[Rfam]
RNA: RT-15 RNA
RNA sequence: CAGCGCCUGCAGCUCGAUCCUCAAGGGGGUCAAGACCGUGCGCUUGUUUAAUCUGGUCGCGCCGCUGGCCCCGCCCGCAGUUUCACCCGCGGUGGAGGCCACCGCCAUGCGCAGCACGGAUACCGCUCGCCAGCUGGAGCUGCCGUUCGCUCCGGCCGGCGAGGCCGCGUCCGGCGCAGUUACCGGGCCGAGGCUUCGACCCGGCGACGUGGAUAGCGCGACAGGUGG
Numbered sequence: 001c002a003g004c005g006c007c008u009g010c011a012g013c014u015c016g017a018u019c020c021u022c023a024a025g026g027g028g029g030u031c032a033a034g035a036c037c038g039u040g041c042g043c044u045u046g047u048u049u050a051a052u053c054u055g056g057u058c059g060c061g062c063c064g065c066u067g068g069c070c071c072c073g074c075c076c077g078c079a080g081u082u083u084c085a086c087c088c089g090c091g092g093u094g095g096a097g098g099c100c101a102c103c104g105c106c107a108u109g110c111g112c113a114g115c116a117c118g119g120a121u122a123c124c125g126c127u128c129g130c131c132a133g134c135u136g137g138a139g140c141u142g143c144c145g146u147u148c149g150c151u152c153c154g155g156c157c158g159g160c161g162a163g164g165c166c167g168c169g170u171c172c173g174g175c176g177c178a179g180u181u182a183c184c185g186g187g188c189c190g191a192g193g194c195u196u197c198g199a200c201c202c203g204g205c206g207a208c209g210u211g212g213a214u215a216g217c218g219c220g221a222c223a224g225g226u227g228g
Stems, first nucleotide, its partner, number of pairs: 004042003013034002016031006057221006063104002066101005108178005117173004123169001126163005180207002183204005189198003